[Rfam]
RNA sequence: UAUCUUUGCACGCUGAUAGAGACGCUAUCAAUACAUGAAUUUCAUUUAAAAUAAUACUGGAAUG
Numbered sequence: 001u002a003u004c005u006u007u008g009c010a011c012g013c014u015g016a017u018a019g020a021g022a023c024g025c026u027a028u029c030a031a032u033a034c035a036u037g038a039a040u041u042u043c044a045u046u047u048a049a050a051a052u053a054a055u056a057c058u059g060g061a062a063u064g
Stems, first nucleotide, its partner, number of pairs: 014030006
RNA: S15-Flavobacteria ribosomal protein leader